[Rfam]
Nucleotides: 183
Base pairs, nucleotide, nucleotide: 003181005179006178007177008176009175010174011173012172013171014170015169016168017167018166019165020164021163022162023161026158027157028156029155030154031153032152033151034150035149050148052146053145054144055143057141058140059139060138061137062136063135064134065133069131070130071129072128073127074126075125076122077121078120079119080118081117087107088106089105090104091103092102093101094100095099
Number, partner (000 for none) and nucleotide at each position: 001000u002000c003181g004000a005179g006178g007177u008176a009175a010174a011173a012172u013171a014170g015169u016168g017167a018166g019165u020164a021163g022162c023161c024000g025000a026158c027157a028156u029155g030154g031153g032152g033151a034150a035149g036000u037000g038000a039000u040000c041000a042000a043000c044000c045000c046000u047000u048000g049000g050148g051000a052146u053145a054144a055143g056000u057141u058140u059139a060138a061137a062136u063135c064134u065133g066000c067000u068000u069131u070130u071129u072128u073127u074126u075125u076122u077121a078120c079119c080118c081117c082000a083000u084000a085000a086000a087107c088106u089105u090104u091103u092102u093101a094100c095099c096000g097000u098000g099095g100094g101093u102092a103091a104090a105089a106088a107087g108000a109000u110000u111000u112000g113000u114000c115000u116000a117081g118080g119079g120078g121077u122076a123000u124000a125075a126074a127073a128072a129071a130070a131069a132000c133065c134064a135063g136062a137061u138060u139059u140058a141057a142000a143055u144054u145053u146052a147000g148050c149035u150034u151033u152032u153031c154030c155029c156028a157027u158026g159000a160000a161023g162022g163021c164020u165019g166018c167017u168016c169015a170014c171013u172012a173011u174010u175009u176008u177007a178006c179005c180000c181003c182000a183000a

MIR2670 microRNA precursor family: a 183-nucleotide RNA from Medicago truncatula. The match comes from Rfam's covariance-model search (138 bits). NCBI's taxonomy places the organism under Eukaryota, Streptophytina, eudicotyledons, Trifolieae, Medicago. Pairs were carried over by alignment from the consensus structure, which was predicted with RNAalifold.